[Rfam]
RNA sequence: GAGAGGUGCCCUUUCUACCAGGACGAUCGAAGUGUCAGCAACUCCGAUUUUCCCAGGUCAAAGGGCACUUCUGUUGUUACAACACACACUCGGCAACCAUUCCAUCGAUGGAUUCAG
Numbered sequence: 001g002a003g004a005g006g007u008g009c010c011c012u013u014u015c016u017a018c019c020a021g022g023a024c025g026a027u028c029g030a031a032g033u034g035u036c037a038g039c040a041a042c043u044c045c046g047a048u049u050u051u052c053c054c055a056g057g058u059c060a061a062a063g064g065g066c067a068c069u070u071c072u073g074u075u076g077u078u079a080c081a082a083c084a085c086a087c088a089c090u091c092g093g094c095a096a097c098c099a100u101u102c103c104a105u106c107g108a109u110g111g112a113u114u115c116a117g
Stems, first nucleotide, its partner, number of pairs: 002072012017058001019056001021054002025049003029045001031043003099114001101112004

Actinobacteria sRNA Ms_IGR-7: a 117-nucleotide RNA from Mycobacterium triviale. For this family Rfam cites "Identification of small RNAs in Mycobacterium smegmatis using heterologous Hfq" (Li et al., RNA, 2013). It is annotated as a small RNA. The source organism's lineage runs through Bacteria, Bacillati, Actinomycetes, Mycobacteriales and Mycobacterium (subgen. Mycolicibacillus). The pairing is the family consensus, mapped onto this sequence.